[Rfam]
RNA sequence: CUUGACCGACCCGAGCCACAACGGCCGAUCCCGAUCCUGACCGUACGUGGCCAGCACCGCCUGCGCCUC
Numbered sequence: 001c002u003u004g005a006c007c008g009a010c011c012c013g014a015g016c017c018a019c020a021a022c023g024g025c026c027g028a029u030c031c032c033g034a035u036c037c038u039g040a041c042c043g044u045a046c047g048u049g050g051c052c053a054g055c056a057c058c059g060c061c062u063g064c065g066c067c068u069c
Stems, first nucleotide, its partner, number of pairs: 015025003031065001032059002037054003041050003

The family of this 69-nucleotide RNA sequence from Winogradskya consettensis is "ASpks TB sRNA". By type it is an antisense RNA. The family's consensus secondary structure is taken from published work.